Shown here is a 135-nucleotide RNA sequence from Vombatus ursinus, a member of the family "Small nucleolar RNA SNORA4".
RNA sequence: CUCCCAAAAGCUGUGUAUUUGGGAAAGGUCUUUUAAUUACCUUUUUCCCAAUUAAAAGCUGUCUGGGAGAGAAAAGACCACACUCCACAGUGAACUACAGUGUUGUAGUCCAUUACCUACUUUGUGGCCAACAGU
Numbered sequence: 001c002u003c004c005c006a007a008a009a010g011c012u013g014u015g016u017a018u019u020u021g022g023g024a025a026a027g028g029u030c031u032u033u034u035a036a037u038u039a040c041c042u043u044u045u046u047c048c049c050a051a052u053u054a055a056a057a058g059c060u061g062u063c064u065g066g067g068a069g070a071g072a073a074a075a076g077a078c079c080a081c082a083c084u085c086c087a088c089a090g091u092g093a094a095c096u097a098c099a100g101u102g103u104u105g106u107a108g109u110c111c112a113u114u115a116c117c118u119a120c121u122u123u124g125u126g127g128c129c130a131a132c133a134g135u
Stems, first nucleotide, its partner, number of pairs: 004066003008062001012061001013059002016056001022048004026042004076129001078127005089114004094109006
Source information
NCBI's taxonomy places the organism under Eukaryota, Dipnotetrapodomorpha, Metatheria, Vombatidae, Vombatus. It scores 65 bits against the family's covariance model.